[Rfam]
This 69-nucleotide sequence from Oceanobacillus iheyensis belongs to the Rfam family "Group II catalytic intron D1-D4-1". It is one of the family's seed sequences. NCBI's taxonomy places the organism under Bacteria, Caryophanales, Bacillaceae, Oceanobacillus, Oceanobacillus iheyensis.

RNA sequence: UAACCCAUUCAGCAAUGGAUGGCUGAACGGUCAGAAGUCAGCAGAAGUCAUAGUACCCCUACAGGGGAC
Number, nucleotide and partner (000 for none) at each position: 001u025002a024003a000004c000005c022006c021007a020008u019009u018010c017011a016012g000013c000014a000015a000016u011017g010018g009019a008020u007021g006022g005023c000024u002025g001026a000027a000028c000029g000030g000031u000032c000033a000034g000035a000036a000037g000038u045039c044040a000041g000042c000043a000044g039045a038046a000047g069048u068049c067050a000051u000052a000053g000054u000055a000056c000057c065058c064059c000060u000061a000062c000063a000064g058065g057066g000067g049068a048069c047